[Rfam]
RNA sequence: GAACAGGUAAAGAAGAAGGUUCGUAUAAUCCCGAGAAUAUGGCUCGGGAGUUUCUACGAGGCCGCCGUAAACGGCCUGGCUACGAACGAAACGUCAACGGGA
Numbered sequence: 001g002a003a004c005a006g007g008u009a010a011a012g013a014a015g016a017a018g019g020u021u022c023g024u025a026u027a028a029u030c031c032c033g034a035g036a037a038u039a040u041g042g043c044u045c046g047g048g049a050g051u052u053u054c055u056a057c058g059a060g061g062c063c064g065c066c067g068u069a070a071a072c073g074g075c076c077u078g079g080c081u082a083c084g085a086a087c088g089a090a091a092c093g094u095c096a097a098c099g100g101g102a
Stems, first nucleotide, its partner, number of pairs: 019087007029049007059077006
Shown here is a 102-nucleotide RNA sequence from Brevibacillus sp. WF146, a member of the family "Purine riboswitch aptamer". It scores 84 bits against the family's covariance model. The organism belongs to Brevibacillus, within Bacteria. Rfam describes the family as follows. Riboswitches are metabolite binding domains within certain messenger RNAs that serve as precision sensors for their corresponding targets.